[Rfam]
A member of the RNA family "Metazoan signal recognition particle RNA" from Scopus umbretta, 281 nucleotides long. Lineage of the source: Eukaryota > Vertebrata > Amniota > Coelurosauria > Scopus.

RNA sequence: GCUUGUAAUCCAAGCACUGGGGAAGCUGAGGCUGGUGGACGGCUUGAGCCUGGGGGGUUCUGGGCUGCAGCAAGCCGUCCCGAGCGGGCAUCCGCGCUAAGGCCGGCAUCGAUAUGGUGGUCCUUGGGGAGCCGGGGGCCACCAGGUCGCUUAAGGAGGGGUGAACCAGCCCUGGCUGGAGAUGGAGCAGGUCAAAGCUCCCGUGCUGGUCAGUAGCGGGAUGGCGCCUGUGAAUAGUCCCUGUAGCUCAGCCUGGGCGAGAGAGCGGGACCCAGUUUCCU
Dot-bracket structure: ........(((.........)))....((((((((....(.((((..(((((((.....(((((((((((...((.((.(...((((((.(((.(((((.(((((((((((((.(((((((((((((....))))))))))))).))))((...)).(((((......(((....(((....)))....)))....))))).)))))))))..)))))))...).))))))).)).))..))))))))))))))))))....)))).)...))))))))..
Rfam classes the family as a non-coding RNA gene.